The record is a 204-nucleotide RNA from Knoellia subterranea, which matches "Actinobacteria sRNA Ms_IGR-5" in Rfam.
The family's RNA type in Rfam is small RNA.
Pairs were carried over by alignment from the consensus structure.
Taxonomically the source falls in Knoellia subterranea (Bacteria, Actinomycetota, Intrasporangiaceae, Knoellia).

[Rfam]
RNA sequence: ACACGGAAGGGAGGUGGUCCAAGAAGUGAUUUCUCAUUGGACGCGUGAGGUGACUGCGCGCUAGCGCACCUCGACUGCUCGAGGUCGCGCCUCCCGGCGCAAUCCCAAGCAGCUCACCGCAGCCCGCGGGUCGUGCAGGUCGUCCCCUGCACUUGUUGCAUCGGAUCUUCGCGGAUUCGGCGACAGGCCCGCGGGCUGUUCCCU
Dot-bracket structure: .............(((((..................................))))).((((.((((.(((..........)))..)))).....))))....................(((((((((((((.((((((......))))))..................................)))))))))))))......